The record is a 117-nucleotide sequence from Caenorhabditis brenneri, which matches "mir-354 microRNA precursor family" in Rfam.
Gene Ontology terms of the family: RISC complex and miRNA-mediated post-transcriptional gene silencing.
A reference for the family is Ohler et al. (2004), "Patterns of flanking sequence conservation and a characteristic upstream motif for microRNA gene identification", RNA.
Taxonomically the source falls in Caenorhabditis (Eukaryota, Nematoda, Rhabditina, Rhabditoidea).
A search with the family's covariance model found it, with a score of 82 bits.
[Rfam]
RNA sequence: CAGAGCCGAUUAAGCACCUUGGUGCGGCUGCAGACGGGUAACCGGCUCGACGUUCAUCACAUCAUCCGCGACCUUCUUUCCUAUUACCCUUGUUUGUUGCUGCCACUAUUUGGUUUU
Numbered sequence: 001c002a003g004a005g006c007c008g009a010u011u012a013a014g015c016a017c018c019u020u021g022g023u024g025c026g027g028c029u030g031c032a033g034a035c036g037g038g039u040a041a042c043c044g045g046c047u048c049g050a051c052g053u054u055c056a057u058c059a060c061a062u063c064a065u066c067c068g069c070g071a072c073c074u075u076c077u078u079u080c081c082u083a084u085u086a087c088c089c090u091u092g093u094u095u096g097u098u099g100c101u102g103c104c105a106c107u108a109u110u111u112g113g114u115u116u117u
Stems, first nucleotide, its partner, number of pairs: 002117008021107002024103005030097007037088004044081002046070001049063002052060002